RNA sequence: GCAAUAGAAGGCUUUGCAAGGGCGGCCGGCUAAUCUCCUGGAAGGGAGGUGAUGCCAUGGAGGUUUAUCAAGCGUUGUCACUAAUGUUCAUGUUUGGCAUGUUCAUUAUUGCUCUGCUAAAUUACCUCAAAAAGAAAUAGGCCGCCCCUCUCCAGGAUAGCGACCUAUAUCUGUGGGUAGUGCCUGUUUAAAGCCGCCGCCCUUAAAAGCGGCUAUUGCCAGAGAGUCGUGUUAGCGCACGACUC
Numbered sequence: 001g002c003a004a005u006a007g008a009a010g011g012c013u014u015u016g017c018a019a020g021g022g023c024g025g026c027c028g029g030c031u032a033a034u035c036u037c038c039u040g041g042a043a044g045g046g047a048g049g050u051g052a053u054g055c056c057a058u059g060g061a062g063g064u065u066u067a068u069c070a071a072g073c074g075u076u077g078u079c080a081c082u083a084a085u086g087u088u089c090a091u092g093u094u095u096g097g098c099a100u101g102u103u104c105a106u107u108a109u110u111g112c113u114c115u116g117c118u119a120a121a122u123u124a125c126c127u128c129a130a131a132a133a134g135a136a137a138u139a140g141g142c143c144g145c146c147c148c149u150c151u152c153c154a155g156g157a158u159a160g161c162g163a164c165c166u167a168u169a170u171c172u173g174u175g176g177g178u179a180g181u182g183c184c185u186g187u188u189u190a191a192a193g194c195c196g197c198c199g200c201c202c203u204u205a206a207a208a209g210c211g212g213c214u215a216u217u218g219c220c221a222g223a224g225a226g227u228c229g230u231g232u233u234a235g236c237g238c239a240c241g242a243c244u245c
Base pairs, nucleotide, nucleotide: 001219002218003217004216005215007213010195011194012193013192014191016150019149020148021147022146024142026140031052033050035048036047037046038045039044062118063117064116072087073086074085096113097112098111099110197212198211199210200209224245225244226243227242228241229240230239231238232237
Record summary:
The record is a 245-nucleotide sequence from Paenibacillus monticola, which matches "BsrG" in Rfam. A reference for the family is Saito et al. (2008), "Novel small RNA-encoding genes in the intergenic regions of Bacillus subtilis", Gene. NCBI's taxonomy places the organism under Bacteria, Bacillati, Bacillota, Bacilli, Paenibacillus. Rfam 15.1 lists 614 matches to the family in 343 species. Rfam describes the family as follows. bsrE, bsrG and bsrH pair through intermolecular interactions with antisense sRNAs. They form type I toxin/antitoxin system that includes an mRNA encoding for a short, toxic peptide (bsrE, bsrG and bsrH) and an antitoxin that is comprised of an antisense RNA. bsrG encodes a 39-amino-acid toxin, and the 180 nucleotide antisense sRNA called SR4 acts as the antitoxin (they overlap by 123 nucleotides). SR4 interaction with the 3'UTR of bsrG RNA promotes bsrG degradation and inhibits its translation. BsrG interferes with cell envelope biosynthesis, causes membrane invaginations and delocalisation of the cell wall synthesis and initiates autolysis. bsrE RNA encodes 30 amino-acid toxin peptide. Its antitoxin gene, SR5 overlaps by 112 nucleotides at the 3' end of bsrE. SR5 also overlaps bsrG from nucleotide 163 to 52 (Rfam overlap check). The antitoxin SR5 promotes bsrE degradation but unlike SR4 it does not directly inhibits toxin mRNA translation. The family's RNA type in Rfam is small RNA.